Small Cajal body specific RNA 1: a 165-nucleotide RNA from Sorex araneus. The literature on the family includes a 2002 paper in EMBO J by Darzacq et al., "Cajal body-specific small nuclear RNAs: a novel class of 2'-O-methylation and pseudouridylation guide RNAs". scaRNAs are a specific class of small nuclear RNAs which localise to the Cajal bodies and guide the modification of RNA polymerase II transcribed spliceosomal RNAs U1, U2, U4, U5 and U12. ACA35 belong to the H/ACA box class of guide RNAs as it has the predicted hairpin-hinge-hairpin-tail structure, conserved H/ACA-box motifs and is found associated with GAR1. It is predicted to guide pseudouridylation of the U2 spliceosomal snRNA at residue U89. NCBI's taxonomy places the organism under Eukaryota, Metazoa, Eumetazoa, Deuterostomia, Sorex. Rfam's curators put it in the seed alignment. The family's RNA type in Rfam is small Cajal body RNA.
RNA sequence: UAGCAUUUGAUACUAGCCAAGCGAUCUGUGUCCUAGCUUUGAUGAAAGACUUGUGAUAUGAUGUGAUAGCUGGGUUUAAGAAGUGCAAUAUUAAAACAAAAGCCAUGAUUCUCUUAAGCCCAGCAUGUAAAGACACACUCUGAGUUACAGCACACAGGCAAAACU
Numbered sequence: 001u002a003g004c005a006u007u008u009g010a011u012a013c014u015a016g017c018c019a020a021g022c023g024a025u026c027u028g029u030g031u032c033c034u035a036g037c038u039u040u041g042a043u044g045a046a047a048g049a050c051u052u053g054u055g056a057u058a059u060g061a062u063g064u065g066a067u068a069g070c071u072g073g074g075u076u077u078a079a080g081a082a083g084u085g086c087a088a089u090a091u092u093a094a095a096a097c098a099a100a101a102g103c104c105a106u107g108a109u110u111c112u113c114u115u116a117a118g119c120c121c122a123g124c125a126u127g128u129a130a131a132g133a134c135a136c137a138c139u140c141u142g143a144g145u146u147a148c149a150g151c152a153c154a155c156a157g158g159c160a161a162a163a164c165u
Stems, first nucleotide, its partner, number of pairs: 003086006015076004020071003024067003027060006033053001035051002038048003102159003123138001126135003139156001141154002144151002